[Rfam]
RNA sequence: UGGCCCAUCCGGGCAACGGAUAUCUGCUUUUA
Numbered sequence: 001u002g003g004c005c006c007a008u009c010c011g012g013g014c015a016a017c018g019g020a021u022a023u024c025u026g027c028u029u030u031u032a
Stems, first nucleotide, its partner, number of pairs: 003014004017026003
Dot-bracket structure: ..((((....))))..(((....)))......